[Rfam]
RNA sequence: GCAGCCAUCUUACCGGACAGUGCUGGACUGUGCAUGUCUUCUAACACUGUCUGGUAACGAUGUUUGC
Numbered sequence: 001g002c003a004g005c006c007a008u009c010u011u012a013c014c015g016g017a018c019a020g021u022g023c024u025g026g027a028c029u030g031u032g033c034a035u036g037u038c039u040u041c042u043a044a045c046a047c048u049g050u051c052u053g054g055u056a057a058c059g060a061u062g063u064u065u066g067c
Stems, first nucleotide, its partner, number of pairs: 002066003006062004010057013024043004
Record summary:
The record is a 67-nucleotide sequence from Chanos chanos, which matches "mir-8/mir-141/mir-200 microRNA precursor family" in Rfam. Rfam 15.1 lists 2,669 matches to the family in 883 species. Its Rfam clan is "mir-8 microRNA precursor clan".